[Rfam]
RNA sequence: GCACCCAUAGCUCAGCUGGAUAGAGCAUCGGCCUUCUAAGCCGAAAGUCCCAGGUUCGAGCCCUGGUGGGUGCA
Numbered sequence: 001g002c003a004c005c006c007a008u009a010g011c012u013c014a015g016c017u018g019g020a021u022a023g024a025g026c027a028u029c030g031g032c033c034u035u036c037u038a039a040g041c042c043g044a045a046a047g048u049c050c051c052a053g054g055u056u057c058g059a060g061c062c063c064u065g066g067u068g069g070g071u072g073c074a
Base pairs, nucleotide, nucleotide: 001073002072003071004070005069006068007067010026011025012024013023028044029043030042031041032040050066051065052064053063054062

Rfam assigns this 74-nucleotide sequence from Enhygromyxa salina to the family "tRNA". The source organism's lineage runs through Bacteria, Myxococcota, Nannocystales, Nannocystaceae and Enhygromyxa. It is annotated as a transfer RNA. Rfam's curators write: Transfer RNA (tRNA) molecules are approximately 80 nucleotides in length. Rfam links the family to the GO term triplet codon-amino acid adaptor activity.